[Rfam]
RNA sequence: ACGGCAGACCGGGAAGGCCAAGACCGAACCAGAAGAGAAGGUUCCGCCUCCCGACCCGGACUACCCAGCACGGACCCCGGCACCCACGCGGAGCCAUAGCCGCUGACAGGGCAGAAGUGUUGCGGGCCUGCGUAACUGCGAAUCACGAAUCCAUGCAUAUGACCCCAGGGGUGGGGCCGCGAUGGGUCGUCUCGCAAGAACGCCGAGGCCACCCCGCGCAACCCACCCAGCACGCCUGGUAACCGGUACUCCGUGCUAGCGGGCGGCGAUCCGAGACACCUCGGGGCGCCGCCCGCUUUUACGU
Numbered sequence: 001a002c003g004g005c006a007g008a009c010c011g012g013g014a015a016g017g018c019c020a021a022g023a024c025c026g027a028a029c030c031a032g033a034a035g036a037g038a039a040g041g042u043u044c045c046g047c048c049u050c051c052c053g054a055c056c057c058g059g060a061c062u063a064c065c066c067a068g069c070a071c072g073g074a075c076c077c078c079g080g081c082a083c084c085c086a087c088g089c090g091g092a093g094c095c096a097u098a099g100c101c102g103c104u105g106a107c108a109g110g111g112c113a114g115a116a117g118u119g120u121u122g123c124g125g126g127c128c129u130g131c132g133u134a135a136c137u138g139c140g141a142a143u144c145a146c147g148a149a150u151c152c153a154u155g156c157a158u159a160u161g162a163c164c165c166c167a168g169g170g171g172u173g174g175g176g177c178c179g180c181g182a183u184g185g186g187u188c189g190u191c192u193c194g195c196a197a198g199a200a201c202g203c204c205g206a207g208g209c210c211a212c213c214c215c216g217c218g219c220a221a222c223c224c225a226c227c228c229a230g231c232a233c234g235c236c237u238g239g240u241a242a243c244c245g246g247u248a249c250u251c252c253g254u255g256c257u258a259g260c261g262g263g264c265g266g267c268g269a270u271c272c273g274a275g276a277c278a279c280c281u282c283g284g285g286g287c288g289c290c291g292c293c294c295g296c297u298u299u300u301a302c303g304u
Base pairs, nucleotide, nucleotide: 003065004064006062007061009059010058011057012056016052017051021049022048026044027043028042029041030040067257068256069255070254071253072252073251074250077246078245079244080243084239085238086237088235089234090233093231094230099112100111101110119222120221121220122219123218124217125210126209127208128207129206130203131202132201133200137196138195139194140193141192145190146189147188150186151185152184153183154182160179161178163176164175165174166173259296260295261294262293263292264291265290266289267288268287271284272283273282
The family of this 304-nucleotide sequence from Mycolicibacterium fallax is "Mycobacterium smegmatis small RNA 1". On this family, see Hnilicova et al., Nucleic Acids Res 2014: "Ms1, a novel sRNA interacting with the RNA polymerase core in mycobacteria".